[Rfam]
RNA sequence: AUGAUGUAUGAUGAUCUAAAUCAGACGGAUUCCCAUUGAUUUAUCAAAAUAUGAUGUCACAACCCGUAGUUCUGAAUCAU
Number, nucleotide and partner (000 for none) at each position: 001a080002u079003g078004a077005u076006g000007u000008a000009u000010g000011a000012u000013g000014a000015u000016c000017u000018a000019a000020a000021u000022c000023a000024g000025a000026c000027g000028g000029a000030u000031u000032c000033c000034c000035a000036u000037u000038g000039a000040u000041u000042u000043a000044u000045c000046a000047a000048a000049a000050u000051a000052u000053g000054a000055u000056g000057u000058c000059a000060c000061a000062a000063c000064c000065c000066g000067u000068a000069g000070u000071u000072c000073u000074g000075a000076a005077u004078c003079a002080u001
Shown here is an 80-nucleotide RNA sequence from Tripterygium wilfordii, a member of the family "Small nucleolar RNA R12". From the family's description: snoR12 is a C/D box small nucleolar RNA, which acts as a methylation guide for 25S ribosomal RNA in plants. snoR12 has been alternatively named snoZ44 in Arabidopsis and snoZ131 in rice. A search with the family's covariance model found it, with a score of 54 bits. It is annotated as a C/D-box small nucleolar RNA. Rfam links the family to the GO terms nucleolus and RNA processing.